[Rfam]
RNA sequence: GGAUACCACCCUGGAGAGACUCAUUUUAUGAGCAUCGAAGAAGAAACUCAAAAUUAUUUUAAUUUGUGGUUUUGGGGAAACUUUCAGAUAAAAGGACAGGUGUAAAUAG
Numbered sequence: 001g002g003a004u005a006c007c008a009c010c011c012u013g014g015a016g017a018g019a020c021u022c023a024u025u026u027u028a029u030g031a032g033c034a035u036c037g038a039a040g041a042a043g044a045a046a047c048u049c050a051a052a053a054u055u056a057u058u059u060u061a062a063u064u065u066g067u068g069g070u071u072u073u074g075g076g077g078a079a080a081c082u083u084u085c086a087g088a089u090a091a092a093a094g095g096a097c098a099g100g101u102g103u104a105a106a107u108a109g
Stems, first nucleotide, its partner, number of pairs: 007102003011099003020032004034089003037085002041083003047076011
Shown here is a 109-nucleotide RNA from Clostridium argentinense, a member of the family "Glycine riboswitch aptamer". A reference for the family is Babina et al. (2017), "In Vivo Behavior of the Tandem Glycine Riboswitch in Bacillus subtilis", MBio. This family represents the bacterial glycine riboswitch.